[Rfam]
RNA sequence: ACUUAAAACGUCAUUGAGUGCAGCGUUGAUGAAAUCGUCUCAUUAUGUGAUGUUUCGUCAACUCUGUACUCAAUUAUGUUUUUA
Numbered sequence: 001a002c003u004u005a006a007a008a009c010g011u012c013a014u015u016g017a018g019u020g021c022a023g024c025g026u027u028g029a030u031g032a033a034a035u036c037g038u039c040u041c042a043u044u045a046u047g048u049g050a051u052g053u054u055u056c057g058u059c060a061a062c063u064c065u066g067u068a069c070u071c072a073a074u075u076a077u078g079u080u081u082u083u084a
Stems, first nucleotide, its partner, number of pairs: 006081006013074011025062004030057003

Rfam assigns this 84-nucleotide RNA from Mikania micrantha to the family "MIR397 microRNA precursor family".
The family has 7 seed sequences and 496 matches in Rfam 15.1.
The organism belongs to Mikania, within Eukaryota.
Pairs were carried over by alignment from the consensus structure, which was predicted with WAR.
A reference for the family is Wu et al. (2009), "Rice MicroRNA effector complexes and targets", Plant Cell.